[Rfam]
RNA sequence: CUCCCCGAAAUGUUUUUAGGAACAGCGUCGCAUAUAGAAGUUUAUUAGAGGUAGAGCUACUGAUUGGGCUAGGGGGCUUCACCGCCUACCAAACCCUGACAAACUCCGAAUGCUAAUAAAUAUCUGCGGCAGUGAGGCUGUGGGCGCUAAGGUCCAUGGCCGAGAGGGAAAUAACCCAGAUUAGCAACUAAGGUCCCUAAUACGUAGUUAAGUUGAACAAACGAGGUGGAGUUUCUAAAACAGCCAGGAUGUUGGCUUGGAAGCAGCCAUUCAUUUAAAGAGUGCGUAACAGCUCACUGGUCGAGAGACUCUGCACGGAAAAUGAUCGGGCAUCAAACUACGAACCGAAGUUCUAGAUUUUAUACUUUGUAUAAAGUGGUAGGGGAGCAUUCCAAUCUGCGUUGAAGGUGUACGGUGACGUAUGCUGGAGCGUUUGGAAAAGAAAAU
Numbered sequence: 001c002u003c004c005c006c007g008a009a010a011u012g013u014u015u016u017u018a019g020g021a022a023c024a025g026c027g028u029c030g031c032a033u034a035u036a037g038a039a040g041u042u043u044a045u046u047a048g049a050g051g052u053a054g055a056g057c058u059a060c061u062g063a064u065u066g067g068g069c070u071a072g073g074g075g076g077c078u079u080c081a082c083c084g085c086c087u088a089c090c091a092a093a094c095c096c097u098g099a100c101a102a103a104c105u106c107c108g109a110a111u112g113c114u115a116a117u118a119a120a121u122a123u124c125u126g127c128g129g130c131a132g133u134g135a136g137g138c139u140g141u142g143g144g145c146g147c148u149a150a151g152g153u154c155c156a157u158g159g160c161c162g163a164g165a166g167g168g169a170a171a172u173a174a175c176c177c178a179g180a181u182u183a184g185c186a187a188c189u190a191a192g193g194u195c196c197c198u199a200a201u202a203c204g205u206a207g208u209u210a211a212g213u214u215g216a217a218c219a220a221a222c223g224a225g226g227u228g229g230a231g232u233u234u235c236u237a238a239a240a241c242a243g244c245c246a247g248g249a250u251g252u253u254g255g256c257u258u259g260g261a262a263g264c265a266g267c268c269a270u271u272c273a274u275u276u277a278a279a280g281a282g283u284g285c286g287u288a289a290c291a292g293c294u295c296a297c298u299g300g301u302c303g304a305g306a307g308a309c310u311c312u313g314c315a316c317g318g319a320a321a322a323u324g325a326u327c328g329g330g331c332a333u334c335a336a337a338c339u340a341c342g343a344a345c346c347g348a349a350g351u352u353c354u355a356g357a358u359u360u361u362a363u364a365c366u367u368u369g370u371a372u373a374a375a376g377u378g379g380u381a382g383g384g385g386a387g388c389a390u391u392c393c394a395a396u397c398u399g400c401g402u403u404g405a406a407g408g409u410g411u412a413c414g415g416u417g418a419c420g421u422a423u424g425c426u427g428g429a430g431c432g433u434u435u436g437g438a439a440a441a442g443a444a445a446a447u
Stems, first nucleotide, its partner, number of pairs: 001387006011024005026132001027130006039123001040121009054107001055105002061101002066096003072090002074087004136161010166177003181356004186352003192346003201343001203342006222317002226314010243301005249274003254268003275279001280295001284293002357377008388442001390439006398432003407426008
Shown here is a 447-nucleotide part of an RNA from Flavihumibacter petaseus, a member of the family "Bacterial large subunit ribosomal RNA". Pairs were carried over by alignment from the consensus structure, which is taken from published work. Taxonomically the source falls in Flavihumibacter petaseus (Bacteria, Bacteroidota, Chitinophagales, Chitinophagaceae).